[Rfam]
RNA: MIR8643 microRNA precursor family
Organism: Gossypium australe
RNA sequence: AUUUCUUUAACAUAUCAAGAAAUUGAAUUGGUAGUGAAGAAAGAAGUAGGAAGUUGAAAGCCAUCAUUACCUAUAGUCAAAACUCAUAAACCCAUACGAUGGUUCUUUCUUUACUGCCAAUUCGACUUCCUGAUAUGUUAAAAGAAAU
Numbered sequence: 001a002u003u004u005c006u007u008u009a010a011c012a013u014a015u016c017a018a019g020a021a022a023u024u025g026a027a028u029u030g031g032u033a034g035u036g037a038a039g040a041a042a043g044a045a046g047u048a049g050g051a052a053g054u055u056g057a058a059a060g061c062c063a064u065c066a067u068u069a070c071c072u073a074u075a076g077u078c079a080a081a082a083c084u085c086a087u088a089a090a091c092c093c094a095u096a097c098g099a100u101g102g103u104u105c106u107u108u109c110u111u112u113a114c115u116g117c118c119a120a121u122u123c124g125a126c127u128u129c130c131u132g133a134u135a136u137g138u139u140a141a142a143a144g145a146a147a148u
Base pairs, nucleotide, nucleotide: 004145005144006143007141008140009139010138011137012136013135014134015133016132017131019129020128021127023125024124025123026122027121028120029119030118032116033115034114035113036112037111038110039109040108041107042106043105044104045103047101048100055094056093